[Rfam]
RNA sequence: UGGCUCCCAACAUGGAGCUUGAGCAUGAGAGAUUCAGUGAAGAACACUGCAGUCUUUUUGUCUGGCCAGACUUAGAGGAAGACAUCUUGCGUGGGAACCUGCCGCCUUGACUGAGGAUCCGGGUAAGUUUGCGGUGAUUAUGGGACAGGCAUUGAGUAGCCAUGAAUUAUUUGUAGAAGGUUUUAGAAAGGCUCUGAAGGUUCAAGGAGUAAAGGUUAAAAAAACAUGAUUAGCUUACAUUCUUUGAUUUUGUUAAAGAAAUUUGCCCAU
Numbered sequence: 001u002g003g004c005u006c007c008c009a010a011c012a013u014g015g016a017g018c019u020u021g022a023g024c025a026u027g028a029g030a031g032a033u034u035c036a037g038u039g040a041a042g043a044a045c046a047c048u049g050c051a052g053u054c055u056u057u058u059u060g061u062c063u064g065g066c067c068a069g070a071c072u073u074a075g076a077g078g079a080a081g082a083c084a085u086c087u088u089g090c091g092u093g094g095g096a097a098c099c100u101g102c103c104g105c106c107u108u109g110a111c112u113g114a115g116g117a118u119c120c121g122g123g124u125a126a127g128u129u130u131g132c133g134g135u136g137a138u139u140a141u142g143g144g145a146c147a148g149g150c151a152u153u154g155a156g157u158a159g160c161c162a163u164g165a166a167u168u169a170u171u172u173g174u175a176g177a178a179g180g181u182u183u184u185a186g187a188a189a190g191g192c193u194c195u196g197a198a199g200g201u202u203c204a205a206g207g208a209g210u211a212a213a214g215g216u217u218a219a220a221a222a223a224a225c226a227u228g229a230u231u232a233g234c235u236u237a238c239a240u241u242c243u244u245u246g247a248u249u250u251u252g253u254u255a256a257a258g259a260a261a262u263u264u265g266c267c268c269a270u
Base pairs, nucleotide, nucleotide: 006031008029012026013025014024035049036048037047038046083121085117086115087114091105092104093103094102129148130147131146135143136141153196154195156192157191203246204245205244206243207242208241209240210239214231215230216229217228218227255270258267